Description:
This 443-nucleotide RNA sequence from Azoarcus olearius belongs to the Rfam family "Bacterial RNase P class A". Lineage of the source: Bacteria > Pseudomonadati > Pseudomonadota > Rhodocyclales > Azoarcus. About the family: Ribonuclease P (RNase P) is a ubiquitous endoribonuclease, found in archaea, bacteria and eukarya as well as chloroplasts and mitochondria. Its Rfam clan is "RNaseP clan".
RNA sequence: GAAGUUCGCCAGGCAGUCGCUGCGUGCCAUGUGUGCGUGGAGGAAAGUCCGGGCCCCGCAGAGCAGGAUGCCGGCUAACGGCCGGGCGCCGUGAGGCGACGGAAAGUGCAACAGAGAGCAGACCGCCGAUGGCUCUUGUCGAGGAGUUCGCUCUUCGCGGAGCACAGGUAAGGGUGAAACGGUGCGGUGACGCGCGCAAGCGCGGCGCCGGUCGGAGCGCAAGCUUCGGCGGGUAAGAGCCCACCGCAGGACUGGCAACAGGACUGGCACGGUAAACCCCAUCCGGGGCAAGGCCAAAUAGGGGAGCAUUGGCGUGGCUCGCGUCGCUCCCGGGUAGGCUGCUAGAGCGCCGCGGUAACGCGGCCCCCAGAGGAAUGACUGCCCGGCGACUGCGGCUUGCCGCGGUCGUUCGACAGAACCCGGCUUAUCGGCGAACUUCCCAA
Numbered sequence: 001g002a003a004g005u006u007c008g009c010c011a012g013g014c015a016g017u018c019g020c021u022g023c024g025u026g027c028c029a030u031g032u033g034u035g036c037g038u039g040g041a042g043g044a045a046a047g048u049c050c051g052g053g054c055c056c057c058g059c060a061g062a063g064c065a066g067g068a069u070g071c072c073g074g075c076u077a078a079c080g081g082c083c084g085g086g087c088g089c090c091g092u093g094a095g096g097c098g099a100c101g102g103a104a105a106g107u108g109c110a111a112c113a114g115a116g117a118g119c120a121g122a123c124c125g126c127c128g129a130u131g132g133c134u135c136u137u138g139u140c141g142a143g144g145a146g147u148u149c150g151c152u153c154u155u156c157g158c159g160g161a162g163c164a165c166a167g168g169u170a171a172g173g174g175u176g177a178a179a180c181g182g183u184g185c186g187g188u189g190a191c192g193c194g195c196g197c198a199a200g201c202g203c204g205g206c207g208c209c210g211g212u213c214g215g216a217g218c219g220c221a222a223g224c225u226u227c228g229g230c231g232g233g234u235a236a237g238a239g240c241c242c243a244c245c246g247c248a249g250g251a252c253u254g255g256c257a258a259c260a261g262g263a264c265u266g267g268c269a270c271g272g273u274a275a276a277c278c279c280c281a282u283c284c285g286g287g288g289c290a291a292g293g294c295c296a297a298a299u300a301g302g303g304g305a306g307c308a309u310u311g312g313c314g315u316g317g318c319u320c321g322c323g324u325c326g327c328u329c330c331c332g333g334g335u336a337g338g339c340u341g342c343u344a345g346a347g348c349g350c351c352g353c354g355g356u357a358a359c360g361c362g363g364c365c366c367c368c369a370g371a372g373g374a375a376u377g378a379c380u381g382c383c384c385g386g387c388g389a390c391u392g393c394g395g396c397u398u399g400c401c402g403c404g405g406u407c408g409u410u411c412g413a414c415a416g417a418a419c420c421c422g423g424c425u426u427a428u429c430g431g432c433g434a435a436c437u438u439c440c441c442a443a
Stems, first nucleotide, its partner, number of pairs: 001439010011428001012383007020040008045426003049423005054288004061320004066284005071085005086100001087098004101279002106277002108273002124215001125212004130207002133204001228245002231242003246268001247266003252261003292340004302331006311325005347366001349364006